[Rfam]
RNA sequence: AUCAUCUUGUCGGAGUGCCCAGCGCGUAUGUUACGCCGGGCUGAGAUCGUUCAUUCGGGAUCCGCGGAACCUGAUCAAGUUAAAACCUGCGAAGGGAACAAGAGUAAUUCAUUC
Numbered sequence: 001a002u003c004a005u006c007u008u009g010u011c012g013g014a015g016u017g018c019c020c021a022g023c024g025c026g027u028a029u030g031u032u033a034c035g036c037c038g039g040g041c042u043g044a045g046a047u048c049g050u051u052c053a054u055u056c057g058g059g060a061u062c063c064g065c066g067g068a069a070c071c072u073g074a075u076c077a078a079g080u081u082a083a084a085a086c087c088u089g090c091g092a093a094g095g096g097a098a099c100a101a102g103a104g105u106a107a108u109u110c111a112u113u114c
Stems, first nucleotide, its partner, number of pairs: 006102005011064004016058001017041004048057002070095003076089002079086001
A member of the RNA family "TPP riboswitch aptamer (THI element)" from Candidatus Sodalis pierantonii, 114 nucleotides long. Gene Ontology term of the family: thiamine pyrophosphate binding.